[Rfam]
RNA sequence: GGACCGCCCACGCCGAAUCCGUGCCGCCCCCGUGGCGGUCCGGAACCGGGGACCCACACGUACGACCACGUACGACCGAGGUGAAUCGGCCCGCGCCCCCGUCCCCACGGGCGCGGCACGGCCGUAGGGCACCUUCCGUUCCGCCCGAACCCGACGGCUGACCCGGUAGGCGGACCAUGGAAGGAGAU
Numbered sequence: 001g002g003a004c005c006g007c008c009c010a011c012g013c014c015g016a017a018u019c020c021g022u023g024c025c026g027c028c029c030c031c032g033u034g035g036c037g038g039u040c041c042g043g044a045a046c047c048g049g050g051g052a053c054c055c056a057c058a059c060g061u062a063c064g065a066c067c068a069c070g071u072a073c074g075a076c077c078g079a080g081g082u083g084a085a086u087c088g089g090c091c092c093g094c095g096c097c098c099c100c101g102u103c104c105c106c107a108c109g110g111g112c113g114c115g116g117c118a119c120g121g122c123c124g125u126a127g128g129g130c131a132c133c134u135u136c137c138g139u140u141c142c143g144c145c146c147g148a149a150c151c152c153g154a155c156g157g158c159u160g161a162c163c164c165g166g167u168a169g170g171c172g173g174a175c176c177a178u179g180g181a182a183g184g185a186g187a188u
Base pairs, nucleotide, nucleotide: 011172012171013170014169018044019043020042045167046166047165048164049163050162055078080151081150087124088123089122090121127146128145129144130143
RNA: c-di-AMP riboswitch aptamer (ydaO/yuaA leader)
Organism: Streptomyces lavendofoliae